[Rfam]
RNA sequence: AAUUGAAUUCGGCCUAGUCCCUAGAACAGGGAGCGGAGGAACCAAUUUUUUGGGGUUAAUUCUACAGUGUAGAAGGGAUGAGAAAGCUCUUUCGCCAUCCUACCCGUCAGCUAACUUCGUCGGCUAAAGCGAAGGAGGUC
Numbered sequence: 001a002a003u004u005g006a007a008u009u010c011g012g013c014c015u016a017g018u019c020c021c022u023a024g025a026a027c028a029g030g031g032a033g034c035g036g037a038g039g040a041a042c043c044a045a046u047u048u049u050u051u052g053g054g055g056u057u058a059a060u061u062c063u064a065c066a067g068u069g070u071a072g073a074a075g076g077g078a079u080g081a082g083a084a085a086g087c088u089c090u091u092u093c094g095c096c097a098u099c100c101u102a103c104c105c106g107u108c109a110g111c112u113a114a115c116u117u118c119g120u121c122g123g124c125u126a127a128a129g130c131g132a133a134g135g136a137g138g139u140c
Base pairs, nucleotide, nucleotide: 011125012124013123014122018032019031020030021029022028033120034119035118036117037116038115043052044051053105054104055103061073062072063071064070076100077099078098079097
RNA: c-di-AMP riboswitch aptamer (ydaO/yuaA leader)
Organism: Bacillus mesophilus